Overview
A member of the RNA family "Alphaproteobacterial ar14" from Pseudaminobacter salicylatoxidans, 122 nucleotides long. A reference for the family is Robledo et al. (2017), "A conserved alpha-proteobacterial small RNA contributes to osmoadaptation and symbiotic efficiency of rhizobia on legume roots", Environ Microbiol. The pairing is the family consensus, mapped onto this sequence. Rfam links the family to the GO term biological process involved in symbiotic interaction. The organism belongs to Pseudaminobacter, within Bacteria. The family's RNA type in Rfam is small RNA.

[Rfam]
RNA sequence: UGAAUUUCGUCGGUUUCUACCUCCUCCCGGAAACUGACGAAUAUGGUCGACUUUCACCUCCUCCCGAUUGUCGACCACCUAUAUGACGCCCGCCGCUCCUCCUCCCGCGGCGGGCGUUAUCC
Numbered sequence: 001u002g003a004a005u006u007u008c009g010u011c012g013g014u015u016u017c018u019a020c021c022u023c024c025u026c027c028c029g030g031a032a033a034c035u036g037a038c039g040a041a042u043a044u045g046g047u048c049g050a051c052u053u054u055c056a057c058c059u060c061c062u063c064c065c066g067a068u069u070g071u072c073g074a075c076c077a078c079c080u081a082u083a084u085g086a087c088g089c090c091c092g093c094c095g096c097u098c099c100u101c102c103u104c105c106c107g108c109g110g111c112g113g114g115c116g117u118u119a120u121c122c
Stems, first nucleotide, its partner, number of pairs: 007040003011036007045076007054067001086117011
Dot-bracket structure: ......(((.(((((((............))))))).)))....(((((((..(............)..))))))).........(((((((((((..........))))))))))).....